Small nucleolar RNA SNORD112: a 77-nucleotide sequence from Molossus molossus. The base pairs follow the family's consensus structure, which was predicted with WAR. Gene Ontology terms of the family: nucleolus and RNA processing. Clan: SNORD74 clan. For this family Rfam cites "Identification of tandemly-repeated C/D snoRNA genes at the imprinted human 14q32 domain reminiscent of those at the Prader-Willi/Angelman syndrome region" (Cavaille et al., Hum Mol Genet, 2002).
[Rfam]
RNA sequence: UGGACCUGUGAAGAGAAAGUGUCUAUGAACAAAAGAUCAUGAUUAAUCCAGUUCUGCACAACAUCCGAAGGUCCAUU
Dot-bracket structure: ((((((...............................................................))))))..